[Rfam]
RNA sequence: GUCGCGCCUAGGCUGAUCCCUAAAACCGGGCACCUUCCCCGGCUGGUGCGGCACUUUUGAAGG
Numbered sequence: 001g002u003c004g005c006g007c008c009u010a011g012g013c014u015g016a017u018c019c020c021u022a023a024a025a026c027c028g029g030g031c032a033c034c035u036u037c038c039c040c041g042g043c044u045g046g047u048g049c050g051g052c053a054c055u056u057u058u059g060a061a062g063g
Stems, first nucleotide, its partner, number of pairs: 001052008011020002026042005034063003
The record is a 63-nucleotide sequence from Rhodanobacter sp. OK091, which matches "int-alpA RNA" in Rfam. Acidobacteria (1 example), Planctomycetes (1 example), Proteobacteria. The organism belongs to Rhodanobacter, within Bacteria. The match comes from Rfam's covariance-model search (43 bits).